[Rfam]
RNA: Bacteroidales small SRP
Organism: Alistipes sp. AF17-16
RNA sequence: UGUCCCUGGGUAAGUCUUAUACGACCAGCUCCUGCUGAAUCCCCCAGGGUCGGAAGACAGCAAGGGUAGGCGGUUGUAGCGGUGCGAUAUAAGUAGCUUACCCAUUU
Numbered sequence: 001u002g003u004c005c006c007u008g009g010g011u012a013a014g015u016c017u018u019a020u021a022c023g024a025c026c027a028g029c030u031c032c033u034g035c036u037g038a039a040u041c042c043c044c045c046a047g048g049g050u051c052g053g054a055a056g057a058c059a060g061c062a063a064g065g066g067u068a069g070g071c072g073g074u075u076g077u078a079g080c081g082g083u084g085c086g087a088u089a090u091a092a093g094u095a096g097c098u099u100a101c102c103c104a105u106u107u
Stems, first nucleotide, its partner, number of pairs: 008103008017092005022086002024083002